[Rfam]
RNA sequence: GGGUUACUCCUUUGCGCUUUCAGCGCUCAAUUUGAUAAAGAUUCGCACCUCUAUCAAACCGGGUAACCCCGCUUUUCGCAAGGCCCUACUGUCAGAUUAAAUCUGAACUACUACAGAUAAAGUCUAUAGGUUGGAAUUACAAUCUGCAUACUCUCGUCUGAACAUUAUCGUUACAAUAAUACCAAAUGCAU
Numbered sequence: 001g002g003g004u005u006a007c008u009c010c011u012u013u014g015c016g017c018u019u020u021c022a023g024c025g026c027u028c029a030a031u032u033u034g035a036u037a038a039a040g041a042u043u044c045g046c047a048c049c050u051c052u053a054u055c056a057a058a059c060c061g062g063g064u065a066a067c068c069c070c071g072c073u074u075u076u077c078g079c080a081a082g083g084c085c086c087u088a089c090u091g092u093c094a095g096a097u098u099a100a101a102u103c104u105g106a107a108c109u110a111c112u113a114c115a116g117a118u119a120a121a122g123u124c125u126a127u128a129g130g131u132u133g134g135a136a137u138u139a140c141a142a143u144c145u146g147c148a149u150a151c152u153c154u155c156g157u158c159u160g161a162a163c164a165u166u167a168u169c170g171u172u173a174c175a176a177u178a179a180u181a182c183c184a185a186a187u188g189c190a191u
Stems, first nucleotide, its partner, number of pairs: 001069007009062002014026004031058007039050002076146001078144001082140001091108002093105005111134003115131001164187003168184001170182001172181002
RNA: Proteobacterial sRNA psRNA2